A member of the RNA family "Manganese Mn2+ riboswitch aptamer (yybP-ykoY)" from Rhodoferax fermentans, 198 nucleotides long. Rfam links the family to the GO term manganese ion binding. Pairs were carried over by alignment from the consensus structure. Taxonomically the source falls in Rhodoferax (Bacteria, Pseudomonadati, Betaproteobacteria, Burkholderiales).
[Rfam]
RNA sequence: CGCGCUGUCAUUGGGGAGUAGCCGCCCUUCUUCACUGAGAGGGGCUUGCGUCAACAGACUUGUCUGGCCAGCAACGGCCAACAUGGCGCAAGCAGAGUCCUGCAACAGGAUUUUGGCGAGACCUUUGGCUGCGCGCCUCCGUUUUUGGCCGGGGAUGCCGCGCAGUCAUUGGUUUUGUUUGUCCGGCCGGAGACCCUC
Numbered sequence: 001c002g003c004g005c006u007g008u009c010a011u012u013g014g015g016g017a018g019u020a021g022c023c024g025c026c027c028u029u030c031u032u033c034a035c036u037g038a039g040a041g042g043g044g045c046u047u048g049c050g051u052c053a054a055c056a057g058a059c060u061u062g063u064c065u066g067g068c069c070a071g072c073a074a075c076g077g078c079c080a081a082c083a084u085g086g087c088g089c090a091a092g093c094a095g096a097g098u099c100c101u102g103c104a105a106c107a108g109g110a111u112u113u114u115g116g117c118g119a120g121a122c123c124u125u126u127g128g129c130u131g132c133g134c135g136c137c138u139c140c141g142u143u144u145u146u147g148g149c150c151g152g153g154g155a156u157g158c159c160g161c162g163c164a165g166u167c168a169u170u171g172g173u174u175u176u177g178u179u180u181g182u183c184c185g186g187c188c189g190g191a192g193a194c195c196c197u198c
Stems, first nucleotide, its partner, number of pairs: 026042003044093010061083002094197002097194003